This 77-nucleotide sequence from Ophiophagus hannah belongs to the Rfam family "mir-129 microRNA precursor family".
The literature on the family includes a 2003 paper in RNA by Lagos-Quintana et al., "New microRNAs from mouse and human".
[Rfam]
RNA sequence: CUGGGUCUUUUUGCGGUCUGGGCUUUCUGGGUCUGUCCAACCCCGUAUCAGAAAGCCCUUACCCCAAAAAGCAUCUG
Numbered sequence: 001c002u003g004g005g006u007c008u009u010u011u012u013g014c015g016g017u018c019u020g021g022g023c024u025u026u027c028u029g030g031g032u033c034u035g036u037c038c039a040a041c042c043c044c045g046u047a048u049c050a051g052a053a054a055g056c057c058c059u060u061a062c063c064c065c066a067a068a069a070a071g072c073a074u075c076u077g
Base pairs, nucleotide, nucleotide: 007071008070009069010068011067012066013065015063016062017061020058021057022056023055025053027051028050